[Rfam]
Nucleotides: 075
Stems, first nucleotide, its partner, number of pairs: 013042003019075007026038003047064007
Number, partner (000 for none) and nucleotide at each position: 001000a002000g003000g004000g005000a006000a007000u008000a009000a010000a011000u012000a013042g014041g015040u016000c017000a018000c019075a020074g021073c022072a023071g024070a025069a026038g027037u028036g029000c030000u031000c032000a033000g034000a035000g036028c037027g038026c039000a040015g041014c042013c043000c044000u045000g046000u047064c048063a049062g050061a051060u052059u053058c054000c055000a056000a057000u058053g059052g060051a061050u062049c063048u064047g065000c066000g067000a068000a069025u070024u071023u072022u073021g074020c075019u